[Rfam]
RNA sequence: AAAGCAGAGAUAUGUGUGUAUCGGAAUUGUACUUUAAAUGCACUUUAAUCCGAAAGAAUUCUCUGCAAAACUGAUUUUUGGUGAAAAUGGGCAGUUGAGUUUCAUGCAAUCUAUUGAUUAUCAACAAUCAUUUUCUCCACAUCU
Numbered sequence: 001a002a003a004g005c006a007g008a009g010a011u012a013u014g015u016g017u018g019u020a021u022c023g024g025a026a027u028u029g030u031a032c033u034u035u036a037a038a039u040g041c042a043c044u045u046u047a048a049u050c051c052g053a054a055a056g057a058a059u060u061c062u063c064u065g066c067a068a069a070a071c072u073g074a075u076u077u078u079u080g081g082u083g084a085a086a087a088u089g090g091g092c093a094g095u096u097g098a099g100u101u102u103c104a105u106g107c108a109a110u111c112u113a114u115u116g117a118u119u120a121u122c123a124a125c126a127a128u129c130a131u132u133u134u135c136u137c138c139a140c141a142u143c144u
Stems, first nucleotide, its partner, number of pairs: 004066007016043006080138002083135008094125004
This 144-nucleotide RNA sequence from Papaver somniferum belongs to the Rfam family "small nucleolar RNA snoR135". The base pairs follow the family's consensus structure, which was predicted with RNAalifold. For this family Rfam cites "Mining small RNA sequencing data: a new approach to identify small nucleolar RNAs in Arabidopsis" (Chen and Wu, Nucleic Acids Res, 2009). The family has 6 seed sequences and 837 matches in Rfam 15.1. Rfam links the family to the GO terms nucleolus and RNA processing.